[Rfam]
RNA sequence: UUCUUAUCCAGAGUGGCAGAGGGACUGGCCCUAUGAUGCCCGGCAACCAUCAAACUAAGUUUGAACGGUGCUAAUUCCUGCGAGGUGUUAAACCUUGAUAGAUGAGAG
Numbered sequence: 001u002u003c004u005u006a007u008c009c010a011g012a013g014u015g016g017c018a019g020a021g022g023g024a025c026u027g028g029c030c031c032u033a034u035g036a037u038g039c040c041c042g043g044c045a046a047c048c049a050u051c052a053a054a055c056u057a058a059g060u061u062u063g064a065a066c067g068g069u070g071c072u073a074a075u076u077c078c079u080g081c082g083a084g085g086u087g088u089u090a091a092a093c094c095u096u097g098a099u100a101g102a103u104g105a106g107a108g
Base pairs, nucleotide, nucleotide: 001108002107003106004105005104006103007102008101013041015040016039017038021031022030023029025080027078028077042072043071044070045069047068048067050064051063052062053061076100081097082096083095084094085093086092
The family of this 108-nucleotide sequence from Bacillus solimangrovi is "SAM riboswitch aptamer (S box leader)".
Taxonomically the source falls in Bacillus (Bacteria, Bacillati, Bacilli, Bacillaceae).